[Rfam]
RNA: glmS glucosamine-6-phosphate activated ribozyme aptamer
Organism: Firmicutes bacterium M10-2
RNA sequence: ACAAAUGAAAAAGCGCCAGGACUGCGAAAGCAGUUGACGAGGACCAGAUUUUUCGAAAGAUUCGGCGGGUGAUCUGGAGGCUUGAUACAGUCUGAACGAUGGACAAAACCAUAUUGUGAAAUAUGAACAAAUCCAAAGAAGUAUCCUC
Numbered sequence: 001a002c003a004a005a006u007g008a009a010a011a012a013g014c015g016c017c018a019g020g021a022c023u024g025c026g027a028a029a030g031c032a033g034u035u036g037a038c039g040a041g042g043a044c045c046a047g048a049u050u051u052u053u054c055g056a057a058a059g060a061u062u063c064g065g066c067g068g069g070u071g072a073u074c075u076g077g078a079g080g081c082u083u084g085a086u087a088c089a090g091u092c093u094g095a096a097c098g099a100u101g102g103a104c105a106a107a108a109c110c111a112u113a114u115u116g117u118g119a120a121a122u123a124u125g126a127a128c129a130a131a132u133c134c135a136a137a138g139a140a141g142u143a144u145c146c147u148c
Base pairs, nucleotide, nucleotide: 020035021034022033023032024031025030044077045076046075047074048073053065054064055063056062078093079092080091081090082089097138100135101134102133110125111124112123113122114121115120